[Rfam]
RNA sequence: UCUAGGGCGACCCCGGAAUCUGAAGGAAAUUGGCGGCAAAUCUCCGCCUUUAGGAACAUGAACUUCAAUAGAAGGCUAGGUUAUACUUGGAUGAGAUUGCCGAACAAAUCAAAGUCCAUACUGCCAAAGGGUAUACAGAGUAAAUGGUGUUGAGAUAUGGAGAGGAAGAAUGUGCG
Number, nucleotide and partner (000 for none) at each position: 001u017002c016003u015004a000005g013006g012007g000008c000009g000010a000011c000012c006013c005014c000015g003016g002017a001018a000019u000020c000021u000022g000023a000024a000025g000026g000027a000028a000029a000030u000031u174032g173033g000034c000035g000036g000037c168038a000039a000040a000041u163042c162043u161044c160045c159046g158047c154048c000049u152050u000051u000052a000053g000054g000055a000056a000057c000058a000059u000060g000061a000062a000063c149064u000065u147066c146067a145068a000069u144070a000071g000072a000073a000074g000075g141076c140077u139078a000079g000080g000081u000082u135083a134084u133085a132086c131087u130088u000089g117090g116091a115092u114093g000094a000095g110096a109097u108098u107099g000100c000101c000102g000103a000104a000105c000106a000107a098108a097109u096110c095111a000112a000113a000114g092115u091116c090117c089118a000119u000120a000121c000122u000123g000124c000125c000126a000127a000128a000129g000130g087131g086132u085133a084134u083135a082136c000137a000138g000139a077140g076141u075142a000143a000144a069145u067146g066147g065148u000149g063150u000151u000152g049153a000154g047155a000156u000157a000158u046159g045160g044161a043162g042163a041164g000165g000166a000167a000168g037169a000170a000171u000172g000173u032174g031175c000176g000
RNA: Group II catalytic intron D1-D4-3